[Rfam]
This 253-nucleotide RNA sequence from Brassica carinata belongs to the Rfam family "RNase MRP".
Clan: RNaseP clan.
Rfam links the family to the GO terms ribonuclease MRP complex, rRNA processing and ribonuclease MRP activity.

RNA sequence: UCGUCAGUGGAAGAAGUGAUUGGACUAUGGGCUUGUCGAAGCUUAGGCCCAGGAAAGUCGCCGGGCCACCUAUCCGCAGAGAUGCGGCCUCGGCAUAACGAGAGAGUCUUCUGCUUGGAGAGACAUUAACCGGCUGAGACGCGUGUGGAGCCUUCACGGUCUCUCCAGCAAAGAUAUUCAUGGCCAAUGUUAACAGUAAUUCACUUGGGUCCUUUAGAGGGAUUUACCAGAACGGGGCUUACUUCCACUGACG
Numbered sequence: 001u002c003g004u005c006a007g008u009g010g011a012a013g014a015a016g017u018g019a020u021u022g023g024a025c026u027a028u029g030g031g032c033u034u035g036u037c038g039a040a041g042c043u044u045a046g047g048c049c050c051a052g053g054a055a056a057g058u059c060g061c062c063g064g065g066c067c068a069c070c071u072a073u074c075c076g077c078a079g080a081g082a083u084g085c086g087g088c089c090u091c092g093g094c095a096u097a098a099c100g101a102g103a104g105a106g107u108c109u110u111c112u113g114c115u116u117g118g119a120g121a122g123a124c125a126u127u128a129a130c131c132g133g134c135u136g137a138g139a140c141g142c143g144u145g146u147g148g149a150g151c152c153u154u155c156a157c158g159g160u161c162u163c164u165c166c167a168g169c170a171a172a173g174a175u176a177u178u179c180a181u182g183g184c185c186a187a188u189g190u191u192a193a194c195a196g197u198a199a200u201u202c203a204c205u206u207g208g209g210u211c212c213u214u215u216a217g218a219g220g221g222a223u224u225u226a227c228c229a230g231a232a233c234g235g236g237g238c239u240u241a242c243u244u245c246c247a248c249u250g251a252c253g
Stems, first nucleotide, its partner, number of pairs: 002253010014206006029044006055240003059237001061235002075086004089102004106175003112170003116167007132152003141146001208224006